[Rfam]
RNA sequence: CAACAACAUGCCAAACCUGCCGUGAGGCAGGGACGGAAAGCCACGGGUCUUACUGAUCAACCGCCAGUAAGACAGCCGGGCUGCAGUGA
Numbered sequence: 001c002a003a004c005a006a007c008a009u010g011c012c013a014a015a016c017c018u019g020c021c022g023u024g025a026g027g028c029a030g031g032g033a034c035g036g037a038a039a040g041c042c043a044c045g046g047g048u049c050u051u052a053c054u055g056a057u058c059a060a061c062c063g064c065c066a067g068u069a070a071g072a073c074a075g076c077c078g079g080g081c082u083g084c085a086g087u088g089a
Stems, first nucleotide, its partner, number of pairs: 011036002016031006034075001039082004044078003047073008
RNA: c-di-GMP-I-GGC riboswitch aptamer